[Rfam]
The family of this 100-nucleotide RNA sequence from Crassaminicella thermophila is "Guanidine-I riboswitch aptamer". Lineage of the source: Bacteria > Bacillati > Clostridia > Eubacteriales > Crassaminicella. From the family's description: This family represents a conserved RNA structure found upstream of the ykkC and yxkD genes in Bacillus subtilis and related genes in other bacteria. The function of this family is unclear although it has been suggested that it may function to switch on efflux pumps and detoxification systems in response to harmful environmental molecules. Pairs were carried over by alignment from the consensus structure. A search with the family's covariance model found it, with a score of 65 bits. Rfam links the family to the GO term regulation of gene expression.

RNA sequence: UGAAAGCGUAUCUAGGGUUCCGGCUGUUUUGCGUCUGGUCCAAGUGAUACGAGUAUUGCAGUAUGUAAUACUACACCGUGGGGAUAAAAGCCCGGACGGG
Numbered sequence: 001u002g003a004a005a006g007c008g009u010a011u012c013u014a015g016g017g018u019u020c021c022g023g024c025u026g027u028u029u030u031g032c033g034u035c036u037g038g039u040c041c042a043a044g045u046g047a048u049a050c051g052a053g054u055a056u057u058g059c060a061g062u063a064u065g066u067a068a069u070a071c072u073a074c075a076c077c078g079u080g081g082g083g084a085u086a087a088a089a090g091c092c093c094g095g096a097c098g099g100g
Stems, first nucleotide, its partner, number of pairs: 007051006015041002020038002022035001023032002052072008074095001076098001081093003